[Rfam]
RNA sequence: CCGUACUCCACGGGGAAUUGCAAUCCCUCGACUCGAAGUUAAUGCGAGGUGCAGAGCCUGUUGUGAGGGUUUGAAAAAUAACUUUGAUAAAUAUGUUAUUGUUGAGGUUUAUACUUAUGGUGGCGUAAUCUGCCGAACCGUGUCAGGAUGGAAACAUAGCAGCACUAAGGCAAUCUUUGCGGGUAUCAUAUUUGUAAAAAGAGGUAGUGUAUUUUGAAAUUUUGUUUAACAAAUUCGAUAGACAGUGGUACGG
Numbered sequence: 001c002c003g004u005a006c007u008c009c010a011c012g013g014g015g016a017a018u019u020g021c022a023a024u025c026c027c028u029c030g031a032c033u034c035g036a037a038g039u040u041a042a043u044g045c046g047a048g049g050u051g052c053a054g055a056g057c058c059u060g061u062u063g064u065g066a067g068g069g070u071u072u073g074a075a076a077a078a079u080a081a082c083u084u085u086g087a088u089a090a091a092u093a094u095g096u097u098a099u100u101g102u103u104g105a106g107g108u109u110u111a112u113a114c115u116u117a118u119g120g121u122g123g124c125g126u127a128a129u130c131u132g133c134c135g136a137a138c139c140g141u142g143u144c145a146g147g148a149u150g151g152a153a154a155c156a157u158a159g160c161a162g163c164a165c166u167a168a169g170g171c172a173a174u175c176u177u178u179g180c181g182g183g184u185a186u187c188a189u190a191u192u193u194g195u196a197a198a199a200a201g202a203g204g205u206a207g208u209g210u211a212u213u214u215u216g217a218a219a220u221u222u223u224g225u226u227u228a229a230c231a232a233a234u235u236c237g238a239u240a241g242a243c244a245g246u247g248g249u250a251c252g253g
Base pairs, nucleotide, nucleotide: 001253002252003251004250005249006248007247009051010050011049012028013027014026015025016024018023032048033047034046035045037043058245059244060243061242062241064240067236068235069234070233071232073230076227077226078225079224080223081221085218089214090213091212092211093210097207098205099204100203108198109197110196111195114194116190117189118188119187120186121183124181125180126179127178128177131172132171133170134169140165141164142163143162148157149156150155
The family of this 253-nucleotide sequence from Clostridium sp. CAG:715 is "Bacterial large signal recognition particle RNA". The family's consensus secondary structure is taken from published work. It is annotated as a non-coding RNA gene. The organism belongs to Clostridium, within Bacteria. Rfam links the family to the GO terms signal recognition particle, plasma membrane targeting and SRP-dependent cotranslational protein targeting to membrane, signal sequence recognition.